Shown here is a 112-nucleotide RNA from Microvirga thermotolerans, a member of the family "TPP riboswitch aptamer (THI element)". A search with the family's covariance model found it, with a score of 60 bits.
[Rfam]
RNA sequence: UCCGUUCGACAGGGGUGCUCCGUAUUGCCGGGGCUGAGAUGGCGGCGCGAAGCCGGCGGACCCUUCAGCUGAUCUGGAUAAUACCAGCGGAGCGAGGCGACGAUGUUUUCCG
Numbered sequence: 001u002c003c004g005u006u007c008g009a010c011a012g013g014g015g016u017g018c019u020c021c022g023u024a025u026u027g028c029c030g031g032g033g034c035u036g037a038g039a040u041g042g043c044g045g046c047g048c049g050a051a052g053c054c055g056g057c058g059g060a061c062c063c064u065u066c067a068g069c070u071g072a073u074c075u076g077g078a079u080a081a082u083a084c085c086a087g088c089g090g091a092g093c094g095a096g097g098c099g100a101c102g103a104u105g106u107u108u109u110c111c112g
Stems, first nucleotide, its partner, number of pairs: 006100003010096001011064004016058001017034005041057001043055003068093003074087004
The organism belongs to Microvirga, within Bacteria. Pairs were carried over by alignment from the consensus structure, which is taken from published work.